[Rfam]
RNA sequence: GGGCCCUUAGCUCAGUCUGGUUAGAGCGCUCGGCUCAUAACCGGGUGGUCAUUGGUUCGAAUCCGAUAGGGCCCA
Numbered sequence: 001g002g003g004c005c006c007u008u009a010g011c012u013c014a015g016u017c018u019g020g021u022u023a024g025a026g027c028g029c030u031c032g033g034c035u036c037a038u039a040a041c042c043g044g045g046u047g048g049u050c051a052u053u054g055g056u057u058c059g060a061a062u063c064c065g066a067u068a069g070g071g072c073c074c075a
Stems, first nucleotide, its partner, number of pairs: 001074007010027004029045005051067005
RNA: tRNA